[Rfam]
Shown here is a 169-nucleotide sequence from Caldibacillus thermoamylovorans, a member of the family "Group II catalytic intron D1-D4-3". The base pairs follow the family's consensus structure. The organism belongs to Caldibacillus, within Bacteria. Rfam describes the family as follows. Group II introns are found in rRNA, tRNA and mRNA of organelles in fungi, plants and protists, and also in mRNA in bacteria.
RNA sequence: UUCAUUGCAAUGUGGAAUCUGAAGGAAGCUGGACGCAAAUUCUCGAACUGACCAACAAAAACUACAUAUAAGGCUAAUUGUGACGGACGAAUCUGCAAUACAAGAUAAAGUCCGAUACUGUACGCCCCCCAUACAGUAAAUGCAGUUACAUGUGAAUAAGGUUAUCACU
Numbered sequence: 001u002u003c004a005u006u007g008c009a010a011u012g013u014g015g016a017a018u019c020u021g022a023a024g025g026a027a028g029c030u031g032g033a034c035g036c037a038a039a040u041u042c043u044c045g046a047a048c049u050g051a052c053c054a055a056c057a058a059a060a061a062c063u064a065c066a067u068a069u070a071a072g073g074c075u076a077a078u079u080g081u082g083a084c085g086g087a088c089g090a091a092u093c094u095g096c097a098a099u100a101c102a103a104g105a106u107a108a109a110g111u112c113c114g115a116u117a118c119u120g121u122a123c124g125c126c127c128c129c130c131a132u133a134c135a136g137u138a139a140a141u142g143c144a145g146u147u148a149c150a151u152g153u154g155a156a157u158a159a160g161g162u163u164a165u166c167a168c169u
Stems, first nucleotide, its partner, number of pairs: 001016005028169001030167003035162002040156003044152002046147005065142003073137003079131002082128001085113004091106004